[Rfam]
RNA sequence: CCGGCAUGAUGAGGAAUAUGUUUAUUGUCAUCUUAUGAUUAUUCAUGUGAUGAAAGACAAUCCUCCUACUCAUUCUGA
Dot-bracket structure: .....((((..................(((((................)))))................)))).....
Numbered sequence: 001c002c003g004g005c006a007u008g009a010u011g012a013g014g015a016a017u018a019u020g021u022u023u024a025u026u027g028u029c030a031u032c033u034u035a036u037g038a039u040u041a042u043u044c045a046u047g048u049g050a051u052g053a054a055a056g057a058c059a060a061u062c063c064u065c066c067u068a069c070u071c072a073u074u075c076u077g078a
Stems, first nucleotide, its partner, number of pairs: 006073004028053005
The record is a 78-nucleotide RNA from Arachis hypogaea, which matches "Small nucleolar RNA Z105" in Rfam. A search with the family's covariance model found it, with a score of 52 bits. Rfam 15.1 lists 621 matches to the family in 204 species. Rfam links the family to the GO terms nucleolus and RNA processing.